[Rfam]
A member of the RNA family "Potassium channel RNA editing signal" from Acipenser ruthenus, 114 nucleotides long. This family represents a group of sequences related to the human potassium channel Kv1.1 hairpin element which directs the efficient modification of an adenosine to inosine by an adenosine deaminase acting on RNA (ADAR). The ADAR modification causes an isoleucine/valine recoding event which lies in the ion-conducting pore of the potassium channel. It is thought that this editing event targets the process of fast inactivation and allows a more rapid recovery from inactivation at negative potentials. The organism belongs to Acipenser, within Eukaryota. The match comes from Rfam's covariance-model search (95 bits). Pairs were carried over by alignment from the consensus structure, which is taken from published work. Rfam links the family to the GO term adenosine to inosine editing. It is annotated as a cis-regulatory element. The literature on the family includes a 2004 paper in Nat Struct Mol Biol by Bhalla et al., "Control of human potassium channel inactivation by editing of a small mRNA hairpin".
RNA sequence: CUUGGGUAUGGUGACAUGUAUCCUCAGACUUGGUCGGGCAUGUUGGUGGGCGCUCUGUGUGCGUUGUCUGGGGUGCUCACAAUAGCCAUGCCUGUGCCCGUCAUUGUCAAUAAC
Numbered sequence: 001c002u003u004g005g006g007u008a009u010g011g012u013g014a015c016a017u018g019u020a021u022c023c024u025c026a027g028a029c030u031u032g033g034u035c036g037g038g039c040a041u042g043u044u045g046g047u048g049g050g051c052g053c054u055c056u057g058u059g060u061g062c063g064u065u066g067u068c069u070g071g072g073g074u075g076c077u078c079a080c081a082a083u084a085g086c087c088a089u090g091c092c093u094g095u096g097c098c099c100g101u102c103a104u105u106g107u108c109a110a111u112a113a114c
Stems, first nucleotide, its partner, number of pairs: 002113001004111001008107004013102003018097004037077004050062002